[Rfam]
RNA sequence: GGGAAAUGAGGAGUGGAUUAAUCUCGCUAUUUUAAUGCGAGAUGGGUGUCUACCCCAAAGCCUGGUUACGACAAUUGGGCACUCUCCCAAUUUUCAAUCUGAUCCC
Numbered sequence: 001g002g003g004a005a006a007u008g009a010g011g012a013g014u015g016g017a018u019u020a021a022u023c024u025c026g027c028u029a030u031u032u033u034a035a036u037g038c039g040a041g042a043u044g045g046g047u048g049u050c051u052a053c054c055c056c057a058a059a060g061c062c063u064g065g066u067u068a069c070g071a072c073a074a075u076u077g078g079g080c081a082c083u084c085u086c087c088c089a090a091u092u093u094u095c096a097a098u099c100u101g102a103u104c105c106c
Stems, first nucleotide, its partner, number of pairs: 001106004014097001016095002023041005044084007063077004
Dot-bracket structure: ((((.........(.((.....(((((.........)))))..(((((((............((((.......))))))))))).........)).).....))))
Rfam assigns this 106-nucleotide RNA sequence from Lupinus angustifolius to the family "Small nucleolar RNA Z279/snoR105/snoR108". Its family is annotated with nucleolus and RNA processing in the Gene Ontology. Lineage of the source: Eukaryota > Viridiplantae > Spermatophyta > Gunneridae > Lupinus. About the family: This family includes the plant snoRNAs known as Z279, snoR105 and snoR108. A reference for the family is Marker et al. (2002), "Experimental RNomics: identification of 140 candidates for small non-messenger RNAs in the plant Arabidopsis thaliana", Curr Biol. By type it is a C/D-box small nucleolar RNA.